[Rfam]
About this RNA: This 418-nucleotide part of an RNA from Epichloe typhina belongs to the Rfam family "Eukaryotic large subunit ribosomal RNA". The literature on the family includes a 2001 paper in Science by Yusupov et al., "Crystal structure of the ribosome at 5.5 A resolution".
RNA sequence: UAACCUUAAAUUAGGUAGGAAUACCUACUAAACUUAAGUAUAUUAAUAAGUAAAGGAAAAGAAACUAAUAGGGAUUACCCUAGUAAUAGUAAGUAAAGUAAUAAUAGCUUAAAUUUAAAAUCUAGCCCCCUAGGGCCUAAGUUAUAAUUUAUAGAGAAUGCUUUUAGUAAGGCACCUUCUAAGUUCCCUAGAAUAAGAUACUAUAAAGGGUAAGAGCCUUAUCUAGUUAGAUACUAAGCCUUUAUAAAGCUUCUUUAAUAAGUUAAGUAGUUUAGGAAUACUACUCUAAAUAGGAGGUAUAUAUCUUCUAAAGCUAAAUAUUAGCUAGAGACUAAUAGUAUAUAAGUAAAGUAAUUAAAAAAUAAAAAGCACUUUAAAAAAAGGGUUAAAUAAUAUAUAAAAUUAUUAAAAGGGAAGC
Numbered sequence: 001u002a003a004c005c006u007u008a009a010a011u012u013a014g015g016u017a018g019g020a021a022u023a024c025c026u027a028c029u030a031a032a033c034u035u036a037a038g039u040a041u042a043u044u045a046a047u048a049a050g051u052a053a054a055g056g057a058a059a060a061g062a063a064a065c066u067a068a069u070a071g072g073g074a075u076u077a078c079c080c081u082a083g084u085a086a087u088a089g090u091a092a093g094u095a096a097a098g099u100a101a102u103a104a105u106a107g108c109u110u111a112a113a114u115u116u117a118a119a120a121u122c123u124a125g126c127c128c129c130c131u132a133g134g135g136c137c138u139a140a141g142u143u144a145u146a147a148u149u150u151a152u153a154g155a156g157a158a159u160g161c162u163u164u165u166a167g168u169a170a171g172g173c174a175c176c177u178u179c180u181a182a183g184u185u186c187c188c189u190a191g192a193a194u195a196a197g198a199u200a201c202u203a204u205a206a207a208g209g210g211u212a213a214g215a216g217c218c219u220u221a222u223c224u225a226g227u228u229a230g231a232u233a234c235u236a237a238g239c240c241u242u243u244a245u246a247a248a249g250c251u252u253c254u255u256u257a258a259u260a261a262g263u264u265a266a267g268u269a270g271u272u273u274a275g276g277a278a279u280a281c282u283a284c285u286c287u288a289a290a291u292a293g294g295a296g297g298u299a300u301a302u303a304u305c306u307u308c309u310a311a312a313g314c315u316a317a318a319u320a321u322u323a324g325c326u327a328g329a330g331a332c333u334a335a336u337a338g339u340a341u342a343u344a345a346g347u348a349a350a351g352u353a354a355u356u357a358a359a360a361a362a363u364a365a366a367a368a369g370c371a372c373u374u375u376a377a378a379a380a381a382a383g384g385g386u387u388a389a390a391u392a393a394u395a396u397a398u399a400a401a402a403u404u405a406u407u408a409a410a411a412g413g414g415a416a417g418c
Stems, first nucleotide, its partner, number of pairs: 024055001026052004035042002065072002076103002086094002106315004112149004118143002121140001125136003154256002156253003161249004167239002171235002175230001179226002183199001185198002202206001209219002266285006292309005349356002372383004

Taxonomically the source falls in Epichloe typhina (Eukaryota, Fungi, saccharomyceta, Hypocreales).
Rfam's curators put it in the seed alignment.